[Rfam]
RNA sequence: GGCCUUGGGGUGUCAACACGUGGGGUUGCAAACCCCAAGAUGCAGUAUAAUACCUGCCGGGGCUU
Numbered sequence: 001g002g003c004c005u006u007g008g009g010g011u012g013u014c015a016a017c018a019c020g021u022g023g024g025g026u027u028g029c030a031a032a033c034c035c036c037a038a039g040a041u042g043c044a045g046u047a048u049a050a051u052a053c054c055u056g057c058c059g060g061g062g063c064u065u
Stems, first nucleotide, its partner, number of pairs: 001064007010019003021037005042057004

Rfam assigns this 65-nucleotide sequence to the family "tRNA". Rfam's curators write: Transfer RNA (tRNA) molecules are approximately 80 nucleotides in length. It is annotated as a transfer RNA. The base pairs follow the family's consensus structure, which is taken from published work. Rfam's curators put it in the seed alignment.